[Rfam]
RNA: mir-33 microRNA precursor family
Organism: Gadus morhua
RNA sequence: CUGUGGUGCAUUGUAGUUGCAUUGCAUGUGUUUCUGCCGGGUGCAAUGUGUCUGCAGCGCAACACAG
Numbered sequence: 001c002u003g004u005g006g007u008g009c010a011u012u013g014u015a016g017u018u019g020c021a022u023u024g025c026a027u028g029u030g031u032u033u034c035u036g037c038c039g040g041g042u043g044c045a046a047u048g049u050g051u052c053u054g055c056a057g058c059g060c061a062a063c064a065c066a067g
Stems, first nucleotide, its partner, number of pairs: 001067004006063001007061003011057006019049001021047007